[Rfam]
RNA sequence: AGCGUGGGUGAUGAAAACAUGACCUUAGGUUCGUCUUUUUUGGACCGUCUUGGUUCAAAGCUUUGGACUUGCCAAUGUUAGGACUCGUCAUAGUUACACUGACACGCU
Numbered sequence: 001a002g003c004g005u006g007g008g009u010g011a012u013g014a015a016a017a018c019a020u021g022a023c024c025u026u027a028g029g030u031u032c033g034u035c036u037u038u039u040u041u042g043g044a045c046c047g048u049c050u051u052g053g054u055u056c057a058a059a060g061c062u063u064u065g066g067a068c069u070u071g072c073c074a075a076u077g078u079u080a081g082g083a084c085u086c087g088u089c090a091u092a093g094u095u096a097c098a099c100u101g102a103c104a105c106g107c108u
Stems, first nucleotide, its partner, number of pairs: 001108006

Small nucleolar RNA SNORD46: a 108-nucleotide RNA from Scophthalmus maximus. The pairing is the family consensus, mapped onto this sequence. By type it is a C/D-box small nucleolar RNA. U40 is a C/D box small nucleolar RNA, also known as snoZ153 in plants. A search with the family's covariance model found it, with a score of 67 bits.